[Rfam]
RNA: mir-9195 microRNA precursor family
Organism: Cnephaeus nilssonii
RNA sequence: AGAGGCCCUCCAUAGCCGGGGUAGAACGCUUGCCUCGUCGCCAUGGAGACAAAGCAAGCAUUCUGCCAGGCUGCUCAUGCUGCCCGC
Number, nucleotide and partner (000 for none) at each position: 001a000002g000003a000004g084005g083006c082007c000008c000009u000010c000011c000012a000013u073014a072015g071016c070017c069018g000019g000020g067021g066022u065023a064024g063025a062026a061027c000028g059029c058030u057031u056032g055033c054034c000035u000036c000037g050038u049039c048040g000041c046042c000043a000044u000045g000046g041047a000048g039049a038050c037051a000052a000053a000054g033055c032056a031057a030058g029059c028060a000061u026062u025063c024064u023065g022066c021067c020068a000069g017070g016071c015072u014073g013074c000075u000076c000077a000078u000079g000080c000081u000082g006083c005084c004085c000086g000087c000